[Rfam]
RNA sequence: AUCUUUGCACUUGGGGCAGUGACGUAGCUAGUGAGGCUCUGACCGAGGCACGUCAAUUGCUGGUUGAAAACUAUUUCCAAAACCCCUCUUAGGCCUGUGUUCAGCUCUGGCCUUUGAGAAUUUCUGGAAGGGCUCCCUCUAAUCCAGGGUAACAGCC
Number, nucleotide and partner (000 for none) at each position: 001a000002u000003c000004u000005u000006u000007g000008c000009a000010c000011u000012u000013g000014g000015g000016g000017c000018a000019g000020u000021g054022a053023c052024g051025u050026a000027g049028c048029u047030a000031g000032u000033g000034a000035g044036g043037c000038u000039c000040u000041g000042a000043c036044c035045g000046a000047g029048g028049c027050a025051c024052g023053u022054c021055a000056a000057u000058u000059g000060c000061u000062g000063g000064u000065u000066g000067a000068a000069a000070a000071c000072u000073a000074u000075u000076u000077c000078c000079a000080a000081a000082a000083c000084c000085c000086c118087u117088c116089u000090u000091a113092g112093g111094c110095c109096u000097g107098u000099g105100u000101u000102c000103a000104g000105c099106u000107c097108u000109g095110g094111c093112c092113u091114u000115u000116g088117a087118g086119a000120a000121u000122u000123u000124c000125u000126g000127g000128a000129a000130g000131g157132g156133c155134u154135c000136c000137c000138u000139c000140u000141a000142a000143u000144c000145c000146a000147g000148g000149g000150u000151a000152a000153c000154a134155g133156c132157c131
Shown here is a 157-nucleotide RNA sequence from Camellia sinensis, a member of the family "U4 spliceosomal RNA". Pairs were carried over by alignment from the consensus structure, which is taken from published work. A search with the family's covariance model found it, with a score of 100 bits. The family has 177 seed sequences and 32,178 matches in Rfam 15.1. About the family: U4 small nuclear RNA (U4 snRNA) is a component of the major U2-dependent spliceosome. It is annotated as a spliceosomal small nuclear RNA.